[Rfam]
RNA: Guanidine-I riboswitch aptamer
RNA sequence: CAAGUUGUUUUCUAGGGUUCCGUGGCGUCCGCGCCAGACUGGUCCAAGGGAAAACACAUAGCGGAUACGCUGUGUUCACGGAGGGGAAAAAGCCCGGGAGUC
Numbered sequence: 001c002a003a004g005u006u007g008u009u010u011u012c013u014a015g016g017g018u019u020c021c022g023u024g025g026c027g028u029c030c031g032c033g034c035c036a037g038a039c040u041g042g043u044c045c046a047a048g049g050g051a052a053a054a055c056a057c058a059u060a061g062c063g064g065a066u067a068c069g070c071u072g073u074g075u076u077c078a079c080g081g082a083g084g085g086g087a088a089a090a091a092g093c094c095c096g097g098g099a100g101u102c
Base pairs, nucleotide, nucleotide: 007055008054009053010052011051012050015045016044020042021041022039023036024035025034026033027032056075057074058073059072060071061070062069063068077097079100083095084094085093